[Rfam]
RNA sequence: AGGUCUAUCGAAGAAGAUGAGGAUGUUGAAGAAGAGAGAAGACUUUGCUAUGUUGCUGUGACAAGAGCGGAAGAGGAGCUUUAUAUAAGUUCAGCUGAAAC
Numbered sequence: 001a002g003g004u005c006u007a008u009c010g011a012a013g014a015a016g017a018u019g020a021g022g023a024u025g026u027u028g029a030a031g032a033a034g035a036g037a038g039a040a041g042a043c044u045u046u047g048c049u050a051u052g053u054u055g056c057u058g059u060g061a062c063a064a065g066a067g068c069g070g071a072a073g074a075g076g077a078g079c080u081u082u083a084u085a086u087a088a089g090u091u092c093a094g095c096u097g098a099a100a101c
Base pairs, nucleotide, nucleotide: 004098005097008093010091020054021053023051029045030044031043055090056089057088061084063082066080067079068078
Rfam assigns this 101-nucleotide RNA sequence from Peptoniphilus indolicus to the family "Clostridioides difficile sRNA included into helicase gene". For this family Rfam cites "Genome-wide identification of regulatory RNAs in the human pathogen Clostridium difficile" (Soutourina et al., PLoS Genet, 2013). About the family: This element was identified by RNA deep sequencing of Clostridioides difficile 630 where it is located within gene CD0749 (putative DNA helicase, UvrD/REP type) in the same direction as the gene. A strong transcription start site for this RNA was experimentally confirmed, in the 3' region of gene CD0749. The 3' end of the sRNA has not been confirmed and its length was arbitrarily set to 100nt. For inclusion criteria: Only sequences from order Clostridiales were included, mostly because the starting sequence belonged to this order and the large majority of sequences found by the different RFAM search iterations belonged to this order as well. Associated e-values did not exceed 1e-09. As the original RNA is part of a coding sequence (CDS), it is possible that homologies were detected due to selection pressure for the CDS rather than for a sRNA. R-scape identified only two significantly covarying pairs present in the structure (4-100 and 7-97). Thus evidence for structure is weak. Pairs were carried over by alignment from the consensus structure, which was predicted with LocARNA. It is annotated as a small RNA.